A member of the RNA family "Group II catalytic intron D1-D4-3" from Pelomicrobium methylotrophicum, 173 nucleotides long. Its family is annotated with Group II intron splicing in the Gene Ontology. Pairs were carried over by alignment from the consensus structure. For this family Rfam cites "The ins and outs of group II introns" (Bonen and Vogel, Trends Genet, 2001).
RNA sequence: UCGUGGGCGACUGCGAAUCUGAAGGAAGCCGAAGGCAAAGCGCUGGCCUGACGGCGAGGCAAGCGGAUACGAGGCGACGUGUCCGGGUAAGGCGGCCAAUAUCGUCGAAGCCCGGUACUUGCACGGAAGGACACGGCGUAUAUCCGACAGGCAUAAGCGUGAAGGUGGGUGCG
Numbered sequence: 001u002c003g004u005g006g007g008c009g010a011c012u013g014c015g016a017a018u019c020u021g022a023a024g025g026a027a028g029c030c031g032a033a034g035g036c037a038a039a040g041c042g043c044u045g046g047c048c049u050g051a052c053g054g055c056g057a058g059g060c061a062a063g064c065g066g067a068u069a070c071g072a073g074g075c076g077a078c079g080u081g082u083c084c085g086g087g088u089a090a091g092g093c094g095g096c097c098a099a100u101a102u103c104g105u106c107g108a109a110g111c112c113c114g115g116u117a118c119u120u121g122c123a124c125g126g127a128a129g130g131a132c133a134c135g136g137c138g139u140a141u142a143u144c145c146g147a148c149a150g151g152c153a154u155a156a157g158c159g160u161g162a163a164g165g166u167g168g169g170u171g172c173g
Stems, first nucleotide, its partner, number of pairs: 001016006030171002035166002040160005046152005064146005074139003078135007085113004091106004
Taxonomically the source falls in Pelomicrobium (Bacteria, Pseudomonadati, Pseudomonadota, Hydrogenophilia).